Description
A member of the RNA family "tpke11" from Gibbsiella quercinecans, 71 nucleotides long. Its family is annotated with response to temperature stimulus in the Gene Ontology. The literature on the family includes a 2001 paper in Curr Biol by Rivas et al., "Computational identification of noncoding RNAs in E. coli by comparative genomics". The match comes from Rfam's covariance-model search (64 bits). NCBI's taxonomy places the organism under Bacteria, Pseudomonadota, Gammaproteobacteria, Yersiniaceae, Gibbsiella. In Yersinia located in ICR upstream dnaJ (chaperone)gene. Has temperature responsive RNA structure. By type it is a small RNA.
RNA sequence: ACUGGGAAACCAGCACGGGCGUUGAGGCAACUCUACGCCCGUGCAUGUAUCUUAGGGGCUAACACAACGAA
Numbered sequence: 001a002c003u004g005g006g007a008a009a010c011c012a013g014c015a016c017g018g019g020c021g022u023u024g025a026g027g028c029a030a031c032u033c034u035a036c037g038c039c040c041g042u043g044c045a046u047g048u049a050u051c052u053u054a055g056g057g058g059c060u061a062a063c064a065c066a067a068c069g070a071a
Stems, first nucleotide, its partner, number of pairs: 003012003013044009024033003